[Rfam]
RNA: MIR396 microRNA precursor family
Organism: Zingiber officinale
RNA sequence: CUUUGUUGUCUUCCACAGCUUUCUUGAACUGCAUGCAUGCAGAUACAUUGAUGAUUUCAGUUGCAGUUCAAUAAAGCUGUGGGAAAUCACAAAGA
Numbered sequence: 001c002u003u004u005g006u007u008g009u010c011u012u013c014c015a016c017a018g019c020u021u022u023c024u025u026g027a028a029c030u031g032c033a034u035g036c037a038u039g040c041a042g043a044u045a046c047a048u049u050g051a052u053g054a055u056u057u058c059a060g061u062u063g064c065a066g067u068u069c070a071a072u073a074a075a076g077c078u079g080u081g082g083g084a085a086a087u088c089a090c091a092a093a094g095a
Stems, first nucleotide, its partner, number of pairs: 003092004013082003017078006024071004029066005